Shown here is a 101-nucleotide sequence from Neobacillus piezotolerans, a member of the family "SAM riboswitch aptamer (S box leader)". Rfam describes the family as follows. The SAM riboswitch is found upstream of a number of genes which code for proteins involved in methionine or cysteine biosynthesis in Gram-positive bacteria. The base pairs follow the family's consensus structure, which is taken from published work.

[Rfam]
RNA sequence: UUCUUAUCAAGAGAGGUGGAGGGAAUGGCCCUUUGAAGCCUCGGCAGCAGGCCCUUGGGCACUGUGCCAAUUCCAGCAGGGGCAUCCCUGAGAGAUAAGGA
Numbered sequence: 001u002u003c004u005u006a007u008c009a010a011g012a013g014a015g016g017u018g019g020a021g022g023g024a025a026u027g028g029c030c031c032u033u034u035g036a037a038g039c040c041u042c043g044g045c046a047g048c049a050g051g052c053c054c055u056u057g058g059g060c061a062c063u064g065u066g067c068c069a070a071u072u073c074c075a076g077c078a079g080g081g082g083c084a085u086c087c088c089u090g091a092g093a094g095a096u097a098a099g100g101a
Base pairs, nucleotide, nucleotide: 001101002100003099004098005097006096007095008094013042014041015040016039017038021031022030023029026075027074028073043068044067045066046065048064049063050060052058053057072093077090078089079088080087081086